[Rfam]
RNA sequence: ACCGGUCUUAACGUCUCGUUAAGCUUUAUCGGUCUUUAAUGCACAUAUCCGGUGUUCGCCGGAUUUGACGGAACGGCCGAUCGGCCACUCCGUCCGACGCCUCCCUGUUAAACUCUCGAGAGCCGCCAUGCGGCUCUUUUUUU
Numbered sequence: 001a002c003c004g005g006u007c008u009u010a011a012c013g014u015c016u017c018g019u020u021a022a023g024c025u026u027u028a029u030c031g032g033u034c035u036u037u038a039a040u041g042c043a044c045a046u047a048u049c050c051g052g053u054g055u056u057c058g059c060c061g062g063a064u065u066u067g068a069c070g071g072a073a074c075g076g077c078c079g080a081u082c083g084g085c086c087a088c089u090c091c092g093u094c095c096g097a098c099g100c101c102u103c104c105c106u107g108u109u110a111a112a113c114u115c116u117c118g119a120g121a122g123c124c125g126c127c128a129u130g131c132g133g134c135u136c137u138u139u140u141u142u143u
Stems, first nucleotide, its partner, number of pairs: 001053004005014002020045001023042002057070002060067001071090002075086002096109004118138009
RNA: Alphaproteobacterial sRNA BjrC1505